Background
Mammalian CPEB3 ribozyme: an 80-nucleotide sequence from Crocodylus porosus.

RNA sequence: AGAGGUCACAAGUUUGAGGCUAUAACAAAAGUGUUCACAGUGCGGCCAUGUCAGAUUCGAAUGAAUCUGCAAAGUCUGCU
Numbered sequence: 001a002g003a004g005g006u007c008a009c010a011a012g013u014u015u016g017a018g019g020c021u022a023u024a025a026c027a028a029a030a031g032u033g034u035u036c037a038c039a040g041u042g043c044g045g046c047c048a049u050g051u052c053a054g055a056u057u058c059g060a061a062u063g064a065a066u067c068u069g070c071a072a073a074g075u076c077u078g079c080u
Stems, first nucleotide, its partner, number of pairs: 013048001018047004024080001026078002029075001031043003052069007
Annotation
Lineage of the source: Eukaryota > Gnathostomata > Tetrapoda > Crocodylidae > Crocodylus. It scores 47 bits against the family's covariance model.